[Rfam]
RNA sequence: AAAGCGUCAAAAAUUGGUAACUCCACCACCGUUGGCGACAAUCGACAGUCAAUGGGGUAAGAGUUGCCGCUUUUUGAUACUAG
Numbered sequence: 001a002a003a004g005c006g007u008c009a010a011a012a013a014u015u016g017g018u019a020a021c022u023c024c025a026c027c028a029c030c031g032u033u034g035g036c037g038a039c040a041a042u043c044g045a046c047a048g049u050c051a052a053u054g055g056g057g058u059a060a061g062a063g064u065u066g067c068c069g070c071u072u073u074u075u076g077a078u079a080c081u082a083g
Base pairs, nucleotide, nucleotide: 003081004080006078007077008076009075010074011073012072016068017067019065020064021063022062023061027057029055030054031053032052033051034050035049036048